[Rfam]
Rfam assigns this 121-nucleotide sequence from Kitasatospora viridis to the family "Streptomyces-metH RNA". The family's RNA type in Rfam is small RNA. The match comes from Rfam's covariance-model search (88 bits).
RNA sequence: CGGUUCACCAUACGGAACGCCGUGCGUCACCGGGGCCCCGGGCGGAUACCCUGACCGGGUGCGCCCCCGAUCGGGGGGAGCGCAUAGCCGACAGCCGUCGCACCCAGGGAGUAGCCCCAUG
Numbered sequence: 001c002g003g004u005u006c007a008c009c010a011u012a013c014g015g016a017a018c019g020c021c022g023u024g025c026g027u028c029a030c031c032g033g034g035g036c037c038c039c040g041g042g043c044g045g046a047u048a049c050c051c052u053g054a055c056c057g058g059g060u061g062c063g064c065c066c067c068c069g070a071u072c073g074g075g076g077g078g079a080g081c082g083c084a085u086a087g088c089c090g091a092c093a094g095c096c097g098u099c100g101c102a103c104c105c106a107g108g109g110a111g112u113a114g115c116c117c118c119a120u121g
Base pairs, nucleotide, nucleotide: 060084061083062082063081065077066076067075068074087101088100090099091098092097